[Rfam]
A member of the RNA family "MIR6152 microRNA precursor family" from Nicotiana sylvestris, 96 nucleotides long. The base pairs follow the family's consensus structure, which was predicted with RNAalifold. The match comes from Rfam's covariance-model search (90 bits). The source organism's lineage runs through Eukaryota, Embryophyta, Mesangiospermae, Gunneridae and Nicotiana.

RNA sequence: GGGACAAAUUAUUGUAUUCGACUGUAUUCACAGCGUGAAACAUGAGAUUACACUGUUUUUAAACGGAAAGUGAAUCAAUUAACUUAAUACACUCCU
Numbered sequence: 001g002g003g004a005c006a007a008a009u010u011a012u013u014g015u016a017u018u019c020g021a022c023u024g025u026a027u028u029c030a031c032a033g034c035g036u037g038a039a040a041c042a043u044g045a046g047a048u049u050a051c052a053c054u055g056u057u058u059u060u061a062a063a064c065g066g067a068a069a070g071u072g073a074a075u076c077a078a079u080u081a082a083c084u085u086a087a088u089a090c091a092c093u094c095c096u
Base pairs, nucleotide, nucleotide: 002095003094004093010089011088012087013086014085017082018081020080021079023077024076026075027074028073029072030071031070034065035064036063037059038058039057040056041055042054